Rfam assigns this 110-nucleotide RNA from Thiomonas delicata to the family "Guanidine-I riboswitch aptamer".

RNA sequence: ACUGAGGCAAGCUAGGGUUCCGGUCGCCAUGCCACGCGGCGAUGUCUGGUCCGAGAGCAUGCCGGCUCUGCACAUGCAGGGCUCCACGGAGGGAUAAAAGCCCGGGAGGU
Numbered sequence: 001a002c003u004g005a006g007g008c009a010a011g012c013u014a015g016g017g018u019u020c021c022g023g024u025c026g027c028c029a030u031g032c033c034a035c036g037c038g039g040c041g042a043u044g045u046c047u048g049g050u051c052c053g054a055g056a057g058c059a060u061g062c063c064g065g066c067u068c069u070g071c072a073c074a075u076g077c078a079g080g081g082c083u084c085c086a087c088g089g090a091g092g093g094a095u096a097a098a099a100g101c102c103c104g105g106g107a108g109g110u
Base pairs, nucleotide, nucleotide: 007062008061009060011058012057015052016051020049021048022046023043024042025041026040027039028038064083065082066081067080068079069078070077071076085105087108091103092102093101